[Rfam]
Nucleotides: 100
Base pairs, nucleotide, nucleotide: 006088007087008086009085010084011050012049013048014047016044017029018028019027020026021025036043037042056081057080058079062075063074064073065072
Number, partner (000 for none) and nucleotide at each position: 001000u002000u003000u004000u005000a006088a007087u008086a009085c010084u011050a012049g013048g014047g015000g016044a017029g018028c019027c020026u021025a022000c023000u024000g025021u026020a027019g028018g029017c030000u031000g032000a033000g034000a035000g036043g037042a038000g039000u040000g041000a042037u043036c044016u045000g046000a047014c048013c049012c050011u051000u052000u053000g054000a055000a056081c057080c058079u059000g060000a061000u062075c063074u064073a065072g066000u067000u068000g069000a070000u071000a072065c073064u074063a075062g076000c077000g078000g079058a080057g081056g082000g083000a084010a085009g086008u087007a088006u089000c090000u091000a092000u093000u094000c095000u096000u097000u098000c099000u100000a

This 100-nucleotide RNA from Dolosigranulum pigrum belongs to the Rfam family "TPP riboswitch aptamer (THI element)". Rfam links the family to the GO term thiamine pyrophosphate binding. Pairs were carried over by alignment from the consensus structure, which is taken from published work. The source organism's lineage runs through Bacteria, Bacillati, Bacilli, Lactobacillales and Dolosigranulum pigrum.